[Rfam]
RNA sequence: GAAAAAAAGCAGAGGCUCCCGCUUCUCGCCUAAGGGACAAGCAAGUCCCGGGGCAGAAUUAUGAAAUGUAAUUCCGAUAAAAACGGAUCUGUGCGGGUGUCUUGUAAAUUUUUAUGAGAUACCCGCAUUUUUUCUGCAUU
Numbered sequence: 001g002a003a004a005a006a007a008a009g010c011a012g013a014g015g016c017u018c019c020c021g022c023u024u025c026u027c028g029c030c031u032a033a034g035g036g037a038c039a040a041g042c043a044a045g046u047c048c049c050g051g052g053g054c055a056g057a058a059u060u061a062u063g064a065a066a067u068g069u070a071a072u073u074c075c076g077a078u079a080a081a082a083a084c085g086g087a088u089c090u091g092u093g094c095g096g097g098u099g100u101c102u103u104g105u106a107a108a109u110u111u112u113u114a115u116g117a118g119a120u121a122c123c124c125g126c127a128u129u130u131u132u133u134c135u136g137c138a139u140u
Stems, first nucleotide, its partner, number of pairs: 011026006028054003034049005092127016
Shown here is a 140-nucleotide sequence from Ligilactobacillus apodemi, a member of the family "Ribosomal protein L20 leader". Lineage of the source: Bacteria > Bacillati > Lactobacillales > Ligilactobacillus > Ligilactobacillus apodemi. Rfam describes the family as follows. This family is a putative r-protein leader autoregulatory structure found in B. subtilis and other low-GC Gram-positive bacteria.